[Rfam]
RNA: RAGATH-32 RNA
RNA sequence: GUGGCUGGACGUUCAGUCGGGAUACCCUUCACGGAUACUUGCCAUUCGGCAGAACAAAUUCCAACGGAAUUUGAGUCA
Numbered sequence: 001g002u003g004g005c006u007g008g009a010c011g012u013u014c015a016g017u018c019g020g021g022a023u024a025c026c027c028u029u030c031a032c033g034g035a036u037a038c039u040u041g042c043c044a045u046u047c048g049g050c051a052g053a054a055c056a057a058a059u060u061c062c063a064a065c066g067g068a069a070u071u072u073g074a075g076u077c078a
Stems, first nucleotide, its partner, number of pairs: 039052005056071002059068003